[Rfam]
RNA sequence: ACGCUGUACGGUUUUGAUUGUUGCUCAGAAAGCCGUAUAUUAUUUGGCUUUCGGGCAAUAAUCAAUUCCAAACAGGGG
Numbered sequence: 001a002c003g004c005u006g007u008a009c010g011g012u013u014u015u016g017a018u019u020g021u022u023g024c025u026c027a028g029a030a031a032g033c034c035g036u037a038u039a040u041u042a043u044u045u046g047g048c049u050u051u052c053g054g055g056c057a058a059u060a061a062u063c064a065a066u067u068c069c070a071a072a073c074a075g076g077g078g
Stems, first nucleotide, its partner, number of pairs: 002077001004075004014065005020059007028052007
RNA: mir-315 microRNA precursor family